[Rfam]
RNA: Exoribonuclease-resistant RNA (xrRNA) plant-infecting virus (class 3)
Organism: Polerovirus CYDVRPV
RNA sequence: AAACUAGCCGGACAAACGUAAGUUGCAAGUGCCGGAAGUCAAGUCUUACA
Numbered sequence: 001a002a003a004c005u006a007g008c009c010g011g012a013c014a015a016a017c018g019u020a021a022g023u024u025g026c027a028a029g030u031g032c033c034g035g036a037a038g039u040c041a042a043g044u045c046u047u048a049c050a
Stems, first nucleotide, its partner, number of pairs: 002039001008035002011033001012030002019048004